[Rfam]
RNA sequence: ACGACCUUACUUGAACAGGAUCUGUUCUAUAGGAAGUACCUUUGUAUCCUUGAUUUCUAAGGAGACAUGCCCCAUAACCCUGGUUGAUGAAUAAUGGCCGUGCGAUCCGAGUGUGAUUAACGGUUACGAUUGUCUUCGGACUCUCUGCACUGUAGAGGAUCGCUACCUAGUCUGGUCUUGACCUAGCUAGGGUGGUUGCACGGUUGUCUGACAGGUC
Dot-bracket structure: ((..(((.....((((((...))))))...)))..)).....(((.((((((.....)))))).)))...........((((..............(((((((((((..((((......(((((...((..(((....)))..))...))))).......)))).((((((..((......))..))))))..))))))))))).......))))..
Numbered sequence: 001a002c003g004a005c006c007u008u009a010c011u012u013g014a015a016c017a018g019g020a021u022c023u024g025u026u027c028u029a030u031a032g033g034a035a036g037u038a039c040c041u042u043u044g045u046a047u048c049c050u051u052g053a054u055u056u057c058u059a060a061g062g063a064g065a066c067a068u069g070c071c072c073c074a075u076a077a078c079c080c081u082g083g084u085u086g087a088u089g090a091a092u093a094a095u096g097g098c099c100g101u102g103c104g105a106u107c108c109g110a111g112u113g114u115g116a117u118u119a120a121c122g123g124u125u126a127c128g129a130u131u132g133u134c135u136u137c138g139g140a141c142u143c144u145c146u147g148c149a150c151u152g153u154a155g156a157g158g159a160u161c162g163c164u165a166c167c168u169a170g171u172c173u174g175g176u177c178u179u180g181a182c183c184u185a186g187c188u189a190g191g192g193u194g195g196u197u198g199c200a201c202g203g204u205u206g207u208c209u210g211a212c213a214g215g216u217c
Stems, first nucleotide, its partner, number of pairs: 001037002005033003013027006043067003047063006079215004097204011110164004120153005128145002132141003166191006174183002
Notes
A member of the RNA family "Plant small nucleolar RNA U3" from Brassica napus, 217 nucleotides long. Small nucleolar RNAs (snoRNAs) are involved in the processing and modification of rRNA in the nucleolus. There are two main classes of snoRNAs: the box C/D class, and the box H/ACA class. U3 snoRNA is a member of the box C/D class. The source organism's lineage runs through Eukaryota, Streptophytina, Spermatophyta, malvids and Brassica. For this family Rfam cites "The uRNA database" (Zwieb, Nucleic Acids Res, 1997). Rfam classes the family as a C/D-box small nucleolar RNA. A search with the family's covariance model found it, with a score of 165 bits. Its Rfam clan is "U3 clan".